The family of this 95-nucleotide RNA from Streptomyces viridochromogenes is "Bacterial small signal recognition particle RNA". On this family, see Righetti et al., Proc Natl Acad Sci U S A 2016: "Temperature-responsive in vitro RNA structurome of Yersinia pseudotuberculosis". About the family: The signal recognition particle (SRP) is a universally conserved ribonucleoprotein involved in the co-translational targeting of proteins to membranes. The family's RNA type in Rfam is non-coding RNA gene. Pairs were carried over by alignment from the consensus structure, which is taken from published work.
RNA sequence: GCAGCCCCUCACGCGGCGCUAUCUGACUGAACUCCCCCAGGGCCGGAAGGCAGCAAGGGUAGGUUGGCUCUGGCGGGUGCGUGGGGGGCGUCUGC
Numbered sequence: 001g002c003a004g005c006c007c008c009u010c011a012c013g014c015g016g017c018g019c020u021a022u023c024u025g026a027c028u029g030a031a032c033u034c035c036c037c038c039a040g041g042g043c044c045g046g047a048a049g050g051c052a053g054c055a056a057g058g059g060u061a062g063g064u065u066g067g068c069u070c071u072g073g074c075g076g077g078u079g080c081g082u083g084g085g086g087g088g089c090g091u092c093u094g095c
Stems, first nucleotide, its partner, number of pairs: 004089010014077001017075005023067006034059003042051003
Dot-bracket structure: ...(((((((((((..(((((.((((((.....(((.....(((....))).....)))..))))))...))))).)..))))))))))......